[Rfam]
Nucleotides: 072
Base pairs, nucleotide, nucleotide: 012068013067015065016064017063018062019061020060021059022058023057024056025055026054027053028052029051
Number, partner (000 for none) and nucleotide at each position: 001000u002000a003000c004000u005000c006000a007000a008000a009000u010000a011000c012068c013067c014000c015065u016064c017063g018062g019061c020060a021059g022058u023057u024056a025055a026054c027053u028052g029051c030000a031000g032000c033000c034000g035000u036000a037000u038000u039000u040000c041000u042000a043000a044000a045000a046000u047000u048000u049000c050000g051029g052028c053027a054026g055025u056024u057023a058022a059021c060020u061019g062018c063017c064016g065015a066000g067013g068012g069000g070000u071000a072000u